A member of the RNA family "sodF sRNA" from Streptomyces sp. Tue6028, 90 nucleotides long. It is annotated as a small RNA. Rfam 15.1 lists 336 matches to the family in 317 species. A reference for the family is Kim et al. (2014), "Inverse regulation of Fe- and Ni-containing SOD genes by a Fur family regulator Nur through small RNA processed from 3'UTR of the sodF mRNA", Nucleic Acids Res. NCBI's taxonomy places the organism under Bacteria, Actinomycetota, Actinomycetes, Streptomycetaceae, Streptomyces.
RNA sequence: GCGUCCUGCUCGUGAUCGUCUUCUCACCCUUCACGUGGCAGGCGGAUGAACGGGAAGCCCCCGCGAGGACCUGACUCGUGGGGGCUUCCC
Dot-bracket structure: .((.((((((.((((..(.........)..))))..)))))))).......((((((((((((((((.......))))))))))))))))